[Rfam]
RNA sequence: GUAGUCCUUCGGGGUCGGGUGAAAUUCCCAAUCGACGGUGAUGAAGCAAUUCUAAGCCCGUGAGCCUUUUUUAAAAGGCAGGAUUUGGUGCAACUCCAAAGCCGACAGUAUAGUCUGGAUGGGAGAAGGAUGUA
Number, nucleotide and partner (000 for none) at each position: 001g000002u000003a000004g131005u130006c129007c128008u127009u126010c125011g000012g000013g000014g000015u000016c000017g029018g028019g027020u000021g000022a000023a000024a000025u000026u000027c019028c018029c017030a000031a114032u113033c104034g103035a061036c060037g059038g058039u000040g000041a000042u000043g000044a000045a000046g000047c000048a000049a000050u000051u000052c000053u000054a000055a000056g102057c101058c038059c037060g036061u035062g000063a000064g000065c000066c078067u000068u000069u000070u000071u000072u000073a000074a000075a000076a000077g000078g066079c000080a000081g000082g000083a000084u100085u099086u098087g097088g096089u000090g000091c000092a000093a000094c000095u000096c088097c087098a086099a085100a084101g057102c056103c034104g033105a000106c117107a116108g115109u000110a000111u000112a000113g032114u031115c108116u107117g106118g000119a000120u000121g000122g000123g000124a000125g010126a009127a008128g007129g006130a005131u004132g000133u000134a000

About this RNA
This 134-nucleotide sequence from Psychrobacillus glaciei belongs to the Rfam family "FMN riboswitch aptamer (RFN element)". Its family is annotated with FMN binding in the Gene Ontology.